[Rfam]
RNA: THF (Tetrahydrofolate) riboswitch aptamer
RNA sequence: UCUGGAGUAGGAAAUAAAGCGUUAAGUGUCAGUGGAACGGAAUGUGAACACUGAACGAAAAGCCUGAGCUUGCGGUUUUAUUUCCGCAUUCGCCACG
Dot-bracket structure: (.(((....(((((((((((((...((.((((((.....[[[[[....))))))))...((((....))))))).)))))))))).]]]]].))).)